Overview
This 114-nucleotide RNA from Oncorhynchus kisutch belongs to the Rfam family "Potassium channel RNA editing signal". On this family, see Bhalla et al., Nat Struct Mol Biol 2004: "Control of human potassium channel inactivation by editing of a small mRNA hairpin". About the family: This family represents a group of sequences related to the human potassium channel Kv1.1 hairpin element which directs the efficient modification of an adenosine to inosine by an adenosine deaminase acting on RNA (ADAR). The ADAR modification causes an isoleucine/valine recoding event which lies in the ion-conducting pore of the potassium channel. It is thought that this editing event targets the process of fast inactivation and allows a more rapid recovery from inactivation at negative potentials. It scores 81 bits against the family's covariance model.
RNA sequence: GUAGGUUAUGGGGACAUAUAUCCACAAACUCUUCUUGGUAAAAUAGUCGGCGGGCUCUGCUGUAUUGCAGGUGUAUUGGUCAUUGCAUUGCCCAUCCCCAUCAUUGUGAACAAC
Numbered sequence: 001g002u003a004g005g006u007u008a009u010g011g012g013g014a015c016a017u018a019u020a021u022c023c024a025c026a027a028a029c030u031c032u033u034c035u036u037g038g039u040a041a042a043a044u045a046g047u048c049g050g051c052g053g054g055c056u057c058u059g060c061u062g063u064a065u066u067g068c069a070g071g072u073g074u075a076u077u078g079g080u081c082a083u084u085g086c087a088u089u090g091c092c093c094a095u096c097c098c099c100a101u102c103a104u105u106g107u108g109a110a111c112a113a114c
Base pairs, nucleotide, nucleotide: 001114002113004111007108008107009106010105011104013102014101020095021094037077038076039075040074049063